[Rfam]
RNA sequence: UGGUCAUUACUAAUGCUUUUAGAAUGCAGUUUCCCAUUUGCUGUGGAUAUGACCAUUAAAAAAUAAAAAUCCCCAUUAGGUUUCCUAUAUUCUGCUUAGAUAGCAGUCAAUCUAUUGGGAACAUUU
Numbered sequence: 001u002g003g004u005c006a007u008u009a010c011u012a013a014u015g016c017u018u019u020u021a022g023a024a025u026g027c028a029g030u031u032u033c034c035c036a037u038u039u040g041c042u043g044u045g046g047a048u049a050u051g052a053c054c055a056u057u058a059a060a061a062a063a064u065a066a067a068a069a070u071c072c073c074c075a076u077u078a079g080g081u082u083u084c085c086u087a088u089a090u091u092c093u094g095c096u097u098a099g100a101u102a103g104c105a106g107u108c109a110a111u112c113u114a115u116u117g118g119g120a121a122c123a124u125u126u
Stems, first nucleotide, its partner, number of pairs: 003053005010046003026041004072119004079112004090105001092103001
Shown here is a 126-nucleotide RNA sequence from Jaculus jaculus, a member of the family "Small nucleolar RNA SNORA32". Pairs were carried over by alignment from the consensus structure, which was predicted with RNAfold. The family has 9 seed sequences and 615 matches in Rfam 15.1. Rfam links the family to the GO terms RNA processing and nucleolus. From the family's description: ACA32 is a member of the H/ACA class of snoRNA that guide the sites of modification of uridines to pseudouridines.